[Rfam]
RNA sequence: UAGCAGCCGUUGAGACGAGAUUACCCCAUACCCUGCAGAGAGCGUCAUCUCGACGCCGUACACGCGUAUGGGGUAAUCUCGACUCAACAGCCGCUC
Numbered sequence: 001u002a003g004c005a006g007c008c009g010u011u012g013a014g015a016c017g018a019g020a021u022u023a024c025c026c027c028a029u030a031c032c033c034u035g036c037a038g039a040g041a042g043c044g045u046c047a048u049c050u051c052g053a054c055g056c057c058g059u060a061c062a063c064g065c066g067u068a069u070g071g072g073g074u075a076a077u078c079u080c081g082a083c084u085c086a087a088c089a090g091c092c093g094c095u096c
Stems, first nucleotide, its partner, number of pairs: 002095002006091002009088006016081007024073004029068003038059001040057001043055004
The record is a 96-nucleotide sequence from Triticum aestivum, which matches "MIR9772 microRNA precursor family" in Rfam. Gene Ontology terms of the family: miRNA-mediated post-transcriptional gene silencing and RISC complex. NCBI's taxonomy places the organism under Eukaryota, Tracheophyta, Spermatophyta, Triticinae, Triticum.